[Rfam]
RNA sequence: AGAGGCCCUCUGCGGCCGGGGUGAAAUGCUUGCCUCGUCGCCGCGGUGAUGAAGAAAGCAUUCCACCAGGCCGCUCAUACUGCCCGC
Numbered sequence: 001a002g003a004g005g006c007c008c009u010c011u012g013c014g015g016c017c018g019g020g021g022u023g024a025a026a027u028g029c030u031u032g033c034c035u036c037g038u039c040g041c042c043g044c045g046g047u048g049a050u051g052a053a054g055a056a057a058g059c060a061u062u063c064c065a066c067c068a069g070g071c072c073g074c075u076c077a078u079a080c081u082g083c084c085c086g087c
Base pairs, nucleotide, nucleotide: 004084005083006082012074013073014072015071016070017069020067021066022065023064025062026061027060028059029058030057031056033054037050038049039048040047041046
Shown here is an 87-nucleotide RNA from Myotis lucifugus, a member of the family "mir-9195 microRNA precursor family".
The organism belongs to Myotis, within Eukaryota.
It scores 94 bits against the family's covariance model.